This 126-nucleotide sequence from Nannospalax galili belongs to the Rfam family "Small Cajal body specific RNA 23". The family has 18 seed sequences and 399 matches in Rfam 15.1. About the family: scaRNAs are a specific class of small nuclear RNAs which localise to the Cajal bodies and guide the modification of RNA polymerase II transcribed spliceosomal RNAs U1, U2, U4, U5 and U12. ACA11 belongs to the H/ACA box class of guide RNAs as it has the predicted hairpin-hinge-hairpin-tail structure,the conserved H/ACA-box motifs and is found associated with GAR1. Rfam links the family to the GO terms Cajal body, nucleolus and RNA processing. A reference for the family is Darzacq et al. (2002), "Cajal body-specific small nuclear RNAs: a novel class of 2'-O-methylation and pseudouridylation guide RNAs", EMBO J.
RNA sequence: CUGCUCACCAGGGCUUGGUCCUCUCCAUGUGGUCUUGACCUGCCCUUCAUGAGCGAGAGAAUUUGGACUGGUUUGGGGGCGUCCUGUCCAAGUGGACAACAGGAUACCACAGUUUUCAGUACAACA
Numbered sequence: 001c002u003g004c005u006c007a008c009c010a011g012g013g014c015u016u017g018g019u020c021c022u023c024u025c026c027a028u029g030u031g032g033u034c035u036u037g038a039c040c041u042g043c044c045c046u047u048c049a050u051g052a053g054c055g056a057g058a059g060a061a062u063u064u065g066g067a068c069u070g071g072u073u074u075g076g077g078g079g080c081g082u083c084c085u086g087u088c089c090a091a092g093u094g095g096a097c098a099a100c101a102g103g104a105u106a107c108c109a110c111a112g113u114u115u116u117c118a119g120u121a122c123a124a125c126a
Base pairs, nucleotide, nucleotide: 003054004053005052006051007050012044013043014042017040018039019038020037025032026031065122067120068119069118070117071116073112074111075110078108079107081105082104083103084102085101086097087096088095089094